[Rfam]
Rfam assigns this 84-nucleotide RNA sequence from Clupea harengus to the family "mir-363 microRNA precursor family". The family is grouped with related families in Rfam's "mir-19 clan". Taxonomically the source falls in Clupea (Eukaryota, Metazoa, Chordata, Clupeoidei). The family's consensus secondary structure was predicted with RNAalifold. Rfam links the family to the GO terms RISC complex and miRNA-mediated post-transcriptional gene silencing. The match comes from Rfam's covariance-model search (79 bits).
Nucleotides: 084
Stems, first nucleotide, its partner, number of pairs: 009075009019066002023062009
Number, partner (000 for none) and nucleotide at each position: 001000g002000c003000u004000g005000u006000u007000u008000u009075c010074g011073g012072g013071u014070g015069g016068a017067u018000g019066a020065c021000u022000u023062u024061g025060c026059a027058a028057u029056u030055u031054u032000a033000a034000u035000g036000a037000u038000g039000c040000c041000u042000u043000u044000a045000a046000u047000c048000u049000a050000u051000a052000c053000a054031a055030a056029a057028a058027u059026u060025g061024c062023a063000c064000g065020g066019u067017a068016u069015c070014c071013a072012u073011c074010u075009g076000u077000a078000a079000u080000c081000c082000g083000c084000c